This 137-nucleotide RNA from Vibrio campbellii belongs to the Rfam family "Group II catalytic intron D1-D4-7". NCBI's taxonomy places the organism under Bacteria, Pseudomonadota, Gammaproteobacteria, Vibrio, Vibrio campbellii. Group II introns are found in rRNA, tRNA and mRNA of organelles in fungi, plants and protists, and also in mRNA in bacteria. Pairs were carried over by alignment from the consensus structure.
RNA sequence: CCAUCUGUAUCACCAGAUGAACCUAAGACUCUGAAUAAAGUAGCGAGUCUGACAAUGUAACGAAGGUUGGCAUUUGCCAAUCGGGAUCGAAAUCGUGAGAAGACUAUCCUCCUGACAACCACGAGUCGGGUAAGUGC
Numbered sequence: 001c002c003a004u005c006u007g008u009a010u011c012a013c014c015a016g017a018u019g020a021a022c023c024u025a026a027g028a029c030u031c032u033g034a035a036u037a038a039a040g041u042a043g044c045g046a047g048u049c050u051g052a053c054a055a056u057g058u059a060a061c062g063a064a065g066g067u068u069g070g071c072a073u074u075u076g077c078c079a080a081u082c083g084g085g086a087u088c089g090a091a092a093u094c095g096u097g098a099g100a101a102g103a104c105u106a107u108c109c110u111c112c113u114g115a116c117a118a119c120c121a122c123g124a125g126u127c128g129g130g131u132a133a134g135u136g137c
Base pairs, nucleotide, nucleotide: 002019003018004017005016006015007014027049028048029047030046031045065082066081067080068079069078070077083110084109085108086107093100094099111130112129113128114127115126116125